[Rfam]
RNA sequence: AGGCUAUGAUGACAAACAACAUUUCUCAAUUCUGAUUUAUGUUGUUUGGUAAUGUAUCAAAAAGUGACGAUACAACCCUUGUGUUGUUCUUUGAUGACUGUGUUUGUGCGUGUCUAGCCUU
Numbered sequence: 001a002g003g004c005u006a007u008g009a010u011g012a013c014a015a016a017c018a019a020c021a022u023u024u025c026u027c028a029a030u031u032c033u034g035a036u037u038u039a040u041g042u043u044g045u046u047u048g049g050u051a052a053u054g055u056a057u058c059a060a061a062a063a064g065u066g067a068c069g070a071u072a073c074a075a076c077c078c079u080u081g082u083g084u085u086g087u088u089c090u091u092u093g094a095u096g097a098c099u100g101u102g103u104u105u106g107u108g109c110g111u112g113u114c115u116a117g118c119c120u121u
Base pairs, nucleotide, nucleotide: 001120002119003118004117005116006115
RNA: small nucleolar RNA snoR126
Organism: Juglans regia